[Rfam]
RNA sequence: CAAACUGCUAAACUGUCUGGGGGAUGGUUUGGUUUGGGCACCGAUGAAGGACGUGCCAAGCUGCGAAAAGCUUCGGGGAGACGCAUGGAGUCACAGAUCCGAAGAUAUCCUAAUCGGACUUCCGGUCCUUUAUGGACACUCCGUAAGGAGGGGGAACCCAGGGAAUUGAAACAUCUUAGUACCUGGAGGAAAAGAAAUCAAUUGAUAUGCCGUUAGUAAAGGCGAUCGAAAGCGGUAAAAGGCAAACCGAAUACAGAACCGACGAGGUUCUGUGGAUGUGGAGUAUGGACCCUUUUUAAUGUCUCGUAUCUGAAUCUGAAUCUGCUGGAAAGCGGAGCCAAAGAAUGUGAAAGCCAUGUAAGAGUAAGGAUAAAGUCUACAAGAAAGGAGUUCCUGAGUACCAUGCGUCGUUAUUCGCGUGGGAAUGUGGGUGGCAUCAACAUCCAACCUUAAAUAUGUCCCAAAUCCGAUAGCGUACAAGUACCGUGAGGGAAAACUGAAAAGCAACCCGGAAGGGUGGUAAAAAGUACCUGAAACCAGACAGUGAUAAACUU
Numbered sequence: 001c002a003a004a005c006u007g008c009u010a011a012a013c014u015g016u017c018u019g020g021g022g023g024a025u026g027g028u029u030u031g032g033u034u035u036g037g038g039c040a041c042c043g044a045u046g047a048a049g050g051a052c053g054u055g056c057c058a059a060g061c062u063g064c065g066a067a068a069a070g071c072u073u074c075g076g077g078g079a080g081a082c083g084c085a086u087g088g089a090g091u092c093a094c095a096g097a098u099c100c101g102a103a104g105a106u107a108u109c110c111u112a113a114u115c116g117g118a119c120u121u122c123c124g125g126u127c128c129u130u131u132a133u134g135g136a137c138a139c140u141c142c143g144u145a146a147g148g149a150g151g152g153g154g155a156a157c158c159c160a161g162g163g164a165a166u167u168g169a170a171a172c173a174u175c176u177u178a179g180u181a182c183c184u185g186g187a188g189g190a191a192a193a194g195a196a197a198u199c200a201a202u203u204g205a206u207a208u209g210c211c212g213u214u215a216g217u218a219a220a221g222g223c224g225a226u227c228g229a230a231a232g233c234g235g236u237a238a239a240a241g242g243c244a245a246a247c248c249g250a251a252u253a254c255a256g257a258a259c260c261g262a263c264g265a266g267g268u269u270c271u272g273u274g275g276a277u278g279u280g281g282a283g284u285a286u287g288g289a290c291c292c293u294u295u296u297u298a299a300u301g302u303c304u305c306g307u308a309u310c311u312g313a314a315u316c317u318g319a320a321u322c323u324g325c326u327g328g329a330a331a332g333c334g335g336a337g338c339c340a341a342a343g344a345a346u347g348u349g350a351a352a353g354c355c356a357u358g359u360a361a362g363a364g365u366a367a368g369g370a371u372a373a374a375g376u377c378u379a380c381a382a383g384a385a386a387g388g389a390g391u392u393c394c395u396g397a398g399u400a401c402c403a404u405g406c407g408u409c410g411u412u413a414u415u416c417g418c419g420u421g422g423g424a425a426u427g428u429g430g431g432u433g434g435c436a437u438c439a440a441c442a443u444c445c446a447a448c449c450u451u452a453a454a455u456a457u458g459u460c461c462c463a464a465a466u467c468c469g470a471u472a473g474c475g476u477a478c479a480a481g482u483a484c485c486g487u488g489a490g491g492g493a494a495a496a497c498u499g500a501a502a503a504g505c506a507a508c509c510c511g512g513a514a515g516g517g518u519g520g521u522a523a524a525a526a527g528u529a530c531c532u533g534a535a536a537c538c539a540g541a542c543a544g545u546g547a548u549a550a551a552c553u554u
Stems, first nucleotide, its partner, number of pairs: 012545009026531001027497002031468002033465006039458002048111004052065003071104006080092003115124003139150004157188001158186005168175002198205002209236005220226001239451004247281003257269004291388004301377001315363003321336005339343001345357003401422007429445005484491002